This 358-nucleotide RNA from Lachnellula occidentalis belongs to the Rfam family "Nuclear RNase P". It is annotated as a ribozyme.

[Rfam]
RNA sequence: GUCCCUACAUGGGAGUGCAACUAUCAGAUCUUUCAUCAGAUCGCAUCUAUGCAUAUGAGAAAUUCGGAGUACUCUUCAAAUCCACCUCGUCCUCUUCCUCCGGGGAGAGUGACUGGUCUGCCCGCGAGGGUUCGGCGUGAUCUCACGUCUGCAAUUGGCAUCAGAAAAGCAGGGCAAGUCACUCUCUACAUAUCUGCUUGCAGAGAAGAGGGAGUGUGCUUGUUCCUAUGGGAGAGCCGUUGCGAAGAUUGUGUGUGCUACGGCAUGACACUUAAGUGCAAUACGCAGCGUGCUGGUCUCUUGGUCACUUGUGGCCGAGGGAUUGGUACAAUUCGAUUCCGAUUACUCUGUUGAGGAC
Numbered sequence: 001g002u003c004c005c006u007a008c009a010u011g012g013g014a015g016u017g018c019a020a021c022u023a024u025c026a027g028a029u030c031u032u033u034c035a036u037c038a039g040a041u042c043g044c045a046u047c048u049a050u051g052c053a054u055a056u057g058a059g060a061a062a063u064u065c066g067g068a069g070u071a072c073u074c075u076u077c078a079a080a081u082c083c084a085c086c087u088c089g090u091c092c093u094c095u096u097c098c099u100c101c102g103g104g105g106a107g108a109g110u111g112a113c114u115g116g117u118c119u120g121c122c123c124g125c126g127a128g129g130g131u132u133c134g135g136c137g138u139g140a141u142c143u144c145a146c147g148u149c150u151g152c153a154a155u156u157g158g159c160a161u162c163a164g165a166a167a168a169g170c171a172g173g174g175c176a177a178g179u180c181a182c183u184c185u186c187u188a189c190a191u192a193u194c195u196g197c198u199u200g201c202a203g204a205g206a207a208g209a210g211g212g213a214g215u216g217u218g219c220u221u222g223u224u225c226c227u228a229u230g231g232g233a234g235a236g237c238c239g240u241u242g243c244g245a246a247g248a249u250u251g252u253g254u255g256u257g258c259u260a261c262g263g264c265a266u267g268a269c270a271c272u273u274a275a276g277u278g279c280a281a282u283a284c285g286c287a288g289c290g291u292g293c294u295g296g297u298c299u300c301u302u303g304g305u306c307a308c309u310u311g312u313g314g315c316c317g318a319g320g321g322a323u324u325g326g327u328a329c330a331a332u333u334c335g336a337u338u339c340c341g342a343u344u345a346c347u348c349u350g351u352u353g354a355g356g357a358c
Base pairs, nucleotide, nucleotide: 001358002357003356004355007351008350009349013056015054016053017052027042028041029040030039031038065341066340067339068338069337074247075246076245077244120131121130122129123128134149135148136147137146138145151243152242153241154240157238158237159236171227172226173225290329291328292327293326294325295324296323297322298321299320300319301318302317303316304315305314306313
Ribonuclease P (RNase P) is a ubiquitous endoribonuclease, found in archaea, bacteria and eukarya as well as chloroplasts and mitochondria. Its best characterised activity is the generation of mature 5'-ends of tRNAs by cleaving the 5'-leader elements of precursor-tRNAs. Cellular RNase Ps are ribonucleoproteins.
Rfam links the family to the GO terms tRNA processing, ribonuclease P activity and ribonuclease P complex.
The organism belongs to Lachnellula, within Eukaryota.